Small nucleolar RNA SNORA65: a 126-nucleotide RNA sequence from Danionella cerebrum.
U65 belongs to the H/ACA class of snoRNAs which are thought to guide the sites of modification of uridines to pseudouridines.
The family's RNA type in Rfam is H/ACA-box small nucleolar RNA.
Gene Ontology terms of the family: RNA processing and nucleolus.
On this family, see Huttenhofer et al., EMBO J 2001: "RNomics: an experimental approach that identifies 201 candidates for novel, small, non-messenger RNAs in mouse".
The family has 14 seed sequences and 1,089 matches in Rfam 15.1.
The organism belongs to Danionella, within Eukaryota.
The base pairs follow the family's consensus structure, which was predicted with RNAalifold.
[Rfam]
RNA sequence: CCCGCCACUGUACUAGACUUUAUUGUGGCUUUGUACAAUCCAGUGGAGGCUAAUAGUGACCCAGCUCUAGGAAGCAGUGCUGCCCCAACUAAUGGGCAACUCUGCGCCGAAAGGCCUGGAACAGAG
Numbered sequence: 001c002c003c004g005c006c007a008c009u010g011u012a013c014u015a016g017a018c019u020u021u022a023u024u025g026u027g028g029c030u031u032u033g034u035a036c037a038a039u040c041c042a043g044u045g046g047a048g049g050c051u052a053a054u055a056g057u058g059a060c061c062c063a064g065c066u067c068u069a070g071g072a073a074g075c076a077g078u079g080c081u082g083c084c085c086c087a088a089c090u091a092a093u094g095g096g097c098a099a100c101u102c103u104g105c106g107c108c109g110a111a112a113g114g115c116c117u118g119g120a121a122c123a124g125a126g
Stems, first nucleotide, its partner, number of pairs: 005046006017034002021028001061119004065114002068111001070108002075104003079100001083096003